RNA sequence: UGACGGUGCCCGUAUGGGCGUUUCCUCCCUGACUGGCCGGAGCCGCCCGGCUCCGGCCUUUUUCAGGGGUCC
Numbered sequence: 001u002g003a004c005g006g007u008g009c010c011c012g013u014a015u016g017g018g019c020g021u022u023u024c025c026u027c028c029c030u031g032a033c034u035g036g037c038c039g040g041a042g043c044c045g046c047c048c049g050g051c052u053c054c055g056g057c058c059u060u061u062u063u064c065a066g067g068g069g070u071c072c
Stems, first nucleotide, its partner, number of pairs: 008019004036057009
Rfam assigns this 72-nucleotide RNA sequence from Methylobacterium oryzihabitans to the family "Makes More Granules Regulator RNA (mmgR)". The literature on the family includes a 2005 paper in Genome Biol by Corbino et al., "Evidence for a second class of S-adenosylmethionine riboswitches and other regulatory RNA motifs in alpha-proteobacteria". Taxonomically the source falls in Methylobacterium (Bacteria, Pseudomonadati, Alphaproteobacteria, Methylobacteriaceae). Pairs were carried over by alignment from the consensus structure.